[Rfam]
Nucleotides: 113
Stems, first nucleotide, its partner, number of pairs: 003111001006108005017029003031093002033083002035049004044081002052059002063079005085096003
Number, partner (000 for none) and nucleotide at each position: 001000a002000a003111a004000a005000a006108u007107c008106u009105u010104c011000g012000g013000g014000g015000g016000u017029g018028g019027g020000u021000g022000a023000a024000a025000u026000u027019c028018c029017c030000u031093a032092c033083c034082g035049g036048c037047g038046g039000u040000u041000a042000u043000a044081g045080c046038c047037c048036g049035c050000g051000a052059g053058c054000g055000c056000a057000a058053g059052c060000u061000g062000a063079u064078u065077u066076g067075g068000u069000g070000a071000a072000a073000u074000u075067c076066c077065a078064a079063a080045g081044c082034c083033g084000a085096c086095a087094g088000u089000a090000a091000a092032g093031u094087c095086u096085g097000g098000a099000u100000g101000a102000g103000a104010g105009a106008a107007g108006a109000a110000a111003u112000u113000u